[Rfam]
RNA sequence: UUGUGUUCUAAGGGGUGCUACAACAUGUGUUGUGGCUGAGAUCAUACCCAUAAACCUGAUCCGGACAAUGCCGGCGUAGGUAAAGGAUAAUCCCUUUAG
Numbered sequence: 001u002u003g004u005g006u007u008c009u010a011a012g013g014g015g016u017g018c019u020a021c022a023a024c025a026u027g028u029g030u031u032g033u034g035g036c037u038g039a040g041a042u043c044a045u046a047c048c049c050a051u052a053a054a055c056c057u058g059a060u061c062c063g064g065a066c067a068a069u070g071c072c073g074g075c076g077u078a079g080g081u082a083a084a085g086g087a088u089a090a091u092c093c094c095u096u097u098a099g
Stems, first nucleotide, its partner, number of pairs: 006087004012049003016044001017036007055080004061074004
The family of this 99-nucleotide sequence from Hallella multisaccharivorax is "TPP riboswitch aptamer (THI element)". The match comes from Rfam's covariance-model search (61 bits).